RNA sequence: CUGAACUGGUGGCGCACCUGGACAAGUUCUUGGUGGGCUAACGUGUACUUUUAAUUCAGUCGAAUAUUGUCACUAAGCCCGCGCCAAAGCGGGCUUUUUUAU
Numbered sequence: 001c002u003g004a005a006c007u008g009g010u011g012g013c014g015c016a017c018c019u020g021g022a023c024a025a026g027u028u029c030u031u032g033g034u035g036g037g038c039u040a041a042c043g044u045g046u047a048c049u050u051u052u053a054a055u056u057c058a059g060u061c062g063a064a065u066a067u068u069g070u071c072a073c074u075a076a077g078c079c080c081g082c083g084c085c086a087a088a089g090c091g092g093g094c095u096u097u098u099u100u101a102u
Stems, first nucleotide, its partner, number of pairs: 009042002012039001015035004020030003076095007
The record is a 102-nucleotide sequence from Vibrio proteolyticus, which matches "Tryptophan operon leader" in Rfam. Its family is annotated with tryptophan biosynthetic process and transcriptional attenuation by ribosome in the Gene Ontology. About the family: At least 6 amino acid operons are known to be regulated by attenuation. In each a leader sequence of 150-200 bp is found upstream of the first gene in the operon.